[Rfam]
The record is a 44-nucleotide RNA from Alkalicoccobacillus porphyridii, which matches "PreQ1 (pre queuosine) riboswitch aptamer" in Rfam. The literature on the family includes a 2004 paper in J Biol Chem by Reader et al., "Identification of four genes necessary for biosynthesis of the modified nucleoside queuosine". Rfam describes the family as follows. This family is a bacterial riboswitch that binds to the metabolite preQ1, an intermediate in the biosynthesis of the modified nucleoside queuosine from GTP. One example of this riboswitch is located in the leader of the Bacillus subtilis ykvJKLM (queCDEF) operon which encodes four genes necessary for queuosine production. PreQ1 binding to the riboswitch aptamer is thought to induce premature transcription termination within the leader to down-regulate expression of these genes. The family has 43 seed sequences and 873 matches in Rfam 15.1. Lineage of the source: Bacteria > Bacilli > Caryophanales > Bacillaceae > Alkalicoccobacillus. Rfam links the family to the GO term queuosine biosynthetic process.
RNA sequence: GCAUAAGAGGUUCGCGAACUCCCUCUAUAAAAAACUAAGGUAGG
Numbered sequence: 001g002c003a004u005a006a007g008a009g010g011u012u013c014g015c016g017a018a019c020u021c022c023c024u025c026u027a028u029a030a031a032a033a034a035c036u037a038a039g040g041u042a043g044g
Base pairs, nucleotide, nucleotide: 006026007025008024009023010022016036